Background:
A member of the RNA family "UnaL2 LINE 3' element" from Salmo trutta, 54 nucleotides long. Pairs were carried over by alignment from the consensus structure, which is taken from published work. The eel long interspersed element (LINE) UnaL2 and its partner short interspersed element (SINE) share a conserved 3' tail containing a stem-loop that is critical for their retrotransposition. Presumably, the first step of retrotransposition is the recognition of their 3' tails by UnaL2-encoded reverse transcriptase. The solution structure of a 17-nucleotide RNA derived from the 3' tail of UnaL2 was determined by NMR.
RNA sequence: UCCACGCAUGACUGUAAGUCGCCUUGGAUAAAAGCAUCUGCUAAAUGAUACAUU
Numbered sequence: 001u002c003c004a005c006g007c008a009u010g011a012c013u014g015u016a017a018g019u020c021g022c023c024u025u026g027g028a029u030a031a032a033a034g035c036a037u038c039u040g041c042u043a044a045a046u047g048a049u050a051c052a053u054u
Stems, first nucleotide, its partner, number of pairs: 013043001014041003021035002024032002